RNA sequence: AGGCAGCCCCCUAGCAAAAAAAAGUUGAUAAGGGAGGUGUUAUUCUACUCGUAGAUUGACUCUUUAGCUCUUCAGAACUGCUGAUAUUUAGGAUGAAGCAGUUCUAGUAACGCUGAAGUACAUU
Numbered sequence: 001a002g003g004c005a006g007c008c009c010c011c012u013a014g015c016a017a018a019a020a021a022a023a024g025u026u027g028a029u030a031a032g033g034g035a036g037g038u039g040u041u042a043u044u045c046u047a048c049u050c051g052u053a054g055a056u057u058g059a060c061u062c063u064u065u066a067g068c069u070c071u072u073c074a075g076a077a078c079u080g081c082u083g084a085u086a087u088u089u090a091g092g093a094u095g096a097a098g099c100a101g102u103u104c105u106a107g108u109a110a111c112g113c114u115g116a117a118g119u120a121c122a123u124u
Stems, first nucleotide, its partner, number of pairs: 002041004007037002009034004013029001015027002062118003067113002069110001074105005080099003085091001

Rfam assigns this 124-nucleotide RNA sequence from Beta vulgaris to the family "Small nucleolar RNA snoR77". The match comes from Rfam's covariance-model search (86 bits). On this family, see Marker et al., Curr Biol 2002: "Experimental RNomics: identification of 140 candidates for small non-messenger RNAs in the plant Arabidopsis thaliana".